[Rfam]
RNA sequence: GAGUGAAAUGAUGCUUUCUCAUCUUUCGGGACUGACCUGAAAUGGAGACACACUUCUGAACUGAUCACUC
Numbered sequence: 001g002a003g004u005g006a007a008a009u010g011a012u013g014c015u016u017u018c019u020c021a022u023c024u025u026u027c028g029g030g031a032c033u034g035a036c037c038u039g040a041a042a043u044g045g046a047g048a049c050a051c052a053c054u055u056c057u058g059a060a061c062u063g064a065u066c067a068c069u070c
Stems, first nucleotide, its partner, number of pairs: 001070006
Notes
This 70-nucleotide sequence from Scyliorhinus torazame belongs to the Rfam family "Small nucleolar RNA SNORD2". For this family Rfam cites "Identification of a novel box C/D snoRNA from mouse nucleolar cDNA library" (Zhou et al., Gene, 2004). By type it is a C/D-box small nucleolar RNA. Pairs were carried over by alignment from the consensus structure, which was predicted with WAR. Rfam 15.1 lists 1,116 matches to the family in 660 species.